[Rfam]
RNA sequence: CUUACCGUGAGGUGGAAUCUGAAGAAAGCAGGAGGCAAACCUUUGGCCUGACGAACAGGAAUCGCAUGAGACGUAUGUGGGUGAGUAAGGUUGCCACACAAGUCAAAGCCCAAAAGCUGCACGGAAACUCACAGCGUAGAUGUGGCAGGUAGAUGAAGGGAAAGAAGUACGC
Numbered sequence: 001c002u003u004a005c006c007g008u009g010a011g012g013u014g015g016a017a018u019c020u021g022a023a024g025a026a027a028g029c030a031g032g033a034g035g036c037a038a039a040c041c042u043u044u045g046g047c048c049u050g051a052c053g054a055a056c057a058g059g060a061a062u063c064g065c066a067u068g069a070g071a072c073g074u075a076u077g078u079g080g081g082u083g084a085g086u087a088a089g090g091u092u093g094c095c096a097c098a099c100a101a102g103u104c105a106a107a108g109c110c111c112a113a114a115a116g117c118u119g120c121a122c123g124g125a126a127a128c129u130c131a132c133a134g135c136g137u138a139g140a141u142g143u144g145g146c147a148g149g150u151a152g153a154u155g156a157a158g159g160g161a162a163a164g165a166a167g168u169a170c171g172c
Stems, first nucleotide, its partner, number of pairs: 002015005028172002032168001036164001040159006046150005062145005071137003076133007083111001085109002089104004